[Rfam]
RNA sequence: AUACUACCUGACAUGGAGACACCAUGACCUGGAAGGUGGUUUUCCCAGGGCGAAGCUGAUCCACUGCACUUGUGAUGCGCUGAUCCUUGUGAUUUCCCCAAAUGCAGGAAACCCCACUGCAUAAUUUGUGGUAGUGGGGGACUGCAUUCAUGCUUCCCCCUA
Numbered sequence: 001a002u003a004c005u006a007c008c009u010g011a012c013a014u015g016g017a018g019a020c021a022c023c024a025u026g027a028c029c030u031g032g033a034a035g036g037u038g039g040u041u042u043u044c045c046c047a048g049g050g051c052g053a054a055g056c057u058g059a060u061c062c063a064c065u066g067c068a069c070u071u072g073u074g075a076u077g078c079g080c081u082g083a084u085c086c087u088u089g090u091g092a093u094u095u096c097c098c099c100a101a102a103u104g105c106a107g108g109a110a111a112c113c114c115c116a117c118u119g120c121a122u123a124a125u126u127u128g129u130g131g132u133a134g135u136g137g138g139g140g141a142c143u144g145c146a147u148u149c150a151u152g153c154u155u156c157c158c159c160c161u162a
Stems, first nucleotide, its partner, number of pairs: 012119002015045005021040005047088004052084001054081003059076003091114001093111003097107001136161005144153003